The family of this 224-nucleotide RNA from Sphingobium sp. is "permuted transfer-messenger RNA".
[Rfam]
RNA sequence: GGCGAUAAACUGUACCGUGCAAUAGGCACAGCGGACCCGGGGGCGGUACCCGGCGGCUCCACCAGAAACGGCCUUUCCCGCGCAAGGGGAGGGCCGGUCCUGACGGGGCCGAACUAGGAUCGACGUGUGUUGAAAAACGGCGCUUUCGCUCGGGCUGAGUAACCCGUUCAAGGCUCAAACUCAUAAGUGCCAACGAUAACGAAGCACUUGCUCUUGCAGCGUAA
Numbered sequence: 001g002g003c004g005a006u007a008a009a010c011u012g013u014a015c016c017g018u019g020c021a022a023u024a025g026g027c028a029c030a031g032c033g034g035a036c037c038c039g040g041g042g043g044c045g046g047u048a049c050c051c052g053g054c055g056g057c058u059c060c061a062c063c064a065g066a067a068a069c070g071g072c073c074u075u076u077c078c079c080g081c082g083c084a085a086g087g088g089g090a091g092g093g094c095c096g097g098u099c100c101u102g103a104c105g106g107g108g109c110c111g112a113a114c115u116a117g118g119a120u121c122g123a124c125g126u127g128u129g130u131u132g133a134a135a136a137a138c139g140g141c142g143c144u145u146u147c148g149c150u151c152g153g154g155c156u157g158a159g160u161a162a163c164c165c166g167u168u169c170a171a172g173g174c175u176c177a178a179a180c181u182c183a184u185a186a187g188u189g190c191c192a193a194c195g196a197u198a199a200c201g202a203a204g205c206a207c208u209u210g211c212u213c214u215u216g217c218a219g220c221g222u223a224a
Base pairs, nucleotide, nucleotide: 001150002149003148004147005146015140016139017138018137027129028128029127031126032125033124037053038052039051040050041049054111055110056109057108058107059106060105151166152165153164154163

Overview:
The match comes from Rfam's covariance-model search (142 bits). The source organism's lineage runs through Bacteria, Pseudomonadati, Pseudomonadota, Sphingomonadales and Sphingobium. For this family Rfam cites "The tmRNA Website: invasion by an intron" (Williams, Nucleic Acids Res, 2002).